RNA: Tombusvirus 3' UTR region IV
RNA sequence: AACCAAGACACGGUUGAUCUCACCCUUCGGGGGGCUAUAGAGAUCGCUGGAAGCACUACCGGACAACCGGAACAUUGCAGCAAUGCAGGGG
Numbered sequence: 001a002a003c004c005a006a007g008a009c010a011c012g013g014u015u016g017a018u019c020u021c022a023c024c025c026u027u028c029g030g031g032g033g034g035c036u037a038u039a040g041a042g043a044u045c046g047c048u049g050g051a052a053g054c055a056c057u058a059c060c061g062g063a064c065a066a067c068c069g070g071a072a073c074a075u076u077g078c079a080g081c082a083a084u085g086c087a088g089g090g091g
Stems, first nucleotide, its partner, number of pairs: 011049004016045006023031003059070004075088005